[Rfam]
RNA: Small nucleolar RNA SNORD105
Organism: Erinaceus europaeus
RNA sequence: CUCCACGCUCUGGUGAUGACCCCACGUGCCCAUGAGUCUCCAUGAUUCUGGCUUCAAAGUAAACGCUCUGAAGACGUGGAGCCCAGA
Numbered sequence: 001c002u003c004c005a006c007g008c009u010c011u012g013g014u015g016a017u018g019a020c021c022c023c024a025c026g027u028g029c030c031c032a033u034g035a036g037u038c039u040c041c042a043u044g045a046u047u048c049u050g051g052c053u054u055c056a057a058a059g060u061a062a063a064c065g066c067u068c069u070g071a072a073g074a075c076g077u078g079g080a081g082c083c084c085a086g087a
Base pairs, nucleotide, nucleotide: 002087003086007082008081009080010079